Overview
The record is a 77-nucleotide RNA sequence from Drosophila mojavensis, which matches "mir-1 microRNA precursor family" in Rfam. This family represents the microRNA (miRNA) mir-1 family. miRNAs are transcribed as ~70nt precursors (modelled here) and subsequently processed by the Dicer enzyme to give a ~22nt product. In this case the mature sequence comes from the 3' arm of the precursor. The extents of the hairpin precursors are not generally known and are estimated based on hairpin prediction.
[Rfam]
Nucleotides: 077
Base pairs, nucleotide, nucleotide: 007071008070009069010068011067012066013065014064015063016062017061018060020058021057022056023055024054025053027051029049030048031047
Number, partner (000 for none) and nucleotide at each position: 001000u002000u003000g004000a005000g006000a007071g008070u009069u010068c011067c012066a013065u014064g015063c016062u017061u018060c019000c020058u021057u022056g023055c024054a025053u026000u027051c028000a029049a030048u031047a032000g033000u034000a035000u036000u037000u038000a039000u040000a041000u042000a043000a044000g045000c046000a047031u048030a049029u050000g051027g052000a053025a054024u055023g056022u057021a058020a059000a060018g061017a062016a063015g064014u065013a066012u067011g068010g069009a070008g071007c072000g073000a074000a075000a076000u077000c

The base pairs follow the family's consensus structure, which was predicted with RNAalifold. Lineage of the source: Eukaryota > Altocrustacea > Brachycera > Ephydroidea > mojavensis species complex. The family has 137 seed sequences and 4,474 matches in Rfam 15.1.